[Rfam]
RNA sequence: GAGGUCGUCAAAGUGGUUGUGAUGUGUUAGACAUGGCUCAUAUCACAGCCUGCUUUGAUGAGCUGUU
Numbered sequence: 001g002a003g004g005u006c007g008u009c010a011a012a013g014u015g016g017u018u019g020u021g022a023u024g025u026g027u028u029a030g031a032c033a034u035g036g037c038u039c040a041u042a043u044c045a046c047a048g049c050c051u052g053c054u055u056u057g058a059u060g061a062g063c064u065g066u067u
Stems, first nucleotide, its partner, number of pairs: 005061009015050008025042003